[Rfam]
RNA sequence: GGGGACGACUGGUUUUGACAGCGAGGUCAGUCAAAUUGUAAGCAUGUCGAGCAUUGAAUAAGUACUCGUAAAAAUCAUAUUCAAAACUUAAACGGCGAGAAUAACUACGCUUUAGCUGCUUAAUCUGAAUUAAUAGUAAGAUUAGCCUAGUCUCACAAGGUGAGAAAGCUUUAUGUCUCCUGACAGCCUUGGUUAACGGCGUUCAAUUUUGAGACAUCGUAAAAGUUAACAUAGGAAUAAAAAGACCAUGGUUUUAUUCCGAAACUAAAAUGGAUAAGUUAAAAGUGGGCAGUUUUUGGUCAGCUUUUAAUCGAAAACCAAUCAAAAACUAAACAUGUAGAAAGCACUUUGGUUGCUUGUUUGGACGAGGGUUCGAGUCCCUCCGUCUCCACUA
Dot-bracket structure: (((((((...........(((((((....((((((.(((...((((([[[[...((((((....]]]].........))))))....................................(((((((............)))))))............................((((((.(((..(((...[[[[[[)))..))).....))))))........]]]]]]...(((((((((.[.[[[[..))))))))).........]]]].]..(((((((((.(((.[[[[[[[))).)))))))))...........]]]]]]]...)))))......))).))))))..)))).)))...(((((.......))))))))))))....